[Rfam]
RNA sequence: GUGAGUUUAGUGGAGUUUAAAGCCUCCAAUCGCCGGCAAUUGCGCGAAAGCUCUACCCAAACUCAUCCCCU
Numbered sequence: 001g002u003g004a005g006u007u008u009a010g011u012g013g014a015g016u017u018u019a020a021a022g023c024c025u026c027c028a029a030u031c032g033c034c035g036g037c038a039a040u041u042g043c044g045c046g047a048a049a050g051c052u053c054u055a056c057c058c059a060a061a062c063u064c065a066u067c068c069c070c071u
Stems, first nucleotide, its partner, number of pairs: 001066008010056009
Dot-bracket structure: ((((((((.(((((((((.............................)))))))))..)))))))).....

The family of this 71-nucleotide sequence from Drosophila kikkawai is "mir-1017 microRNA precursor family".
The base pairs follow the family's consensus structure.